Notes: This 100-nucleotide RNA sequence from Empedobacter falsenii belongs to the Rfam family "SAM-I/IV (S-adenosyl methionine) riboswitch aptamer".
RNA sequence: AUCAAUCAUCAGGAGUUUCUGAAAAAUCAGAACACCAACCGAGCCAAAACCGCGCUACGGUGGUAUAGAAUGAGGGCAAACGCCAAAAUAAAAGGUUAUU
Number, nucleotide and partner (000 for none) at each position: 001a000002u000003c000004a000005a000006u073007c072008a071009u070010c000011a000012g000013g000014a000015g033016u000017u032018u031019c030020u029021g028022a000023a000024a000025a000026a000027u000028c021029a020030g019031a018032a017033c015034a064035c063036c062037a000038a000039c060040c059041g058042a056043g055044c054045c000046a000047a000048a096049a000050c094051c000052g000053c000054g044055c043056u042057a000058c041059g040060g039061u000062g036063g035064u034065a000066u000067a000068g000069a000070a009071u008072g007073a006074g000075g084076g083077c082078a000079a000080a000081c000082g077083c076084c075085a000086a000087a000088a000089u000090a000091a000092a000093a000094g050095g000096u048097u000098a000099u000100u000

The literature on the family includes a 2014 paper in PNAS by Trausch et al., "Structural basis for diversity in the SAM clan of riboswitches". The match comes from Rfam's covariance-model search (61 bits). The family is grouped with related families in Rfam's "SAM clan". Lineage of the source: Bacteria > Pseudomonadati > Bacteroidota > Flavobacteriia > Empedobacter.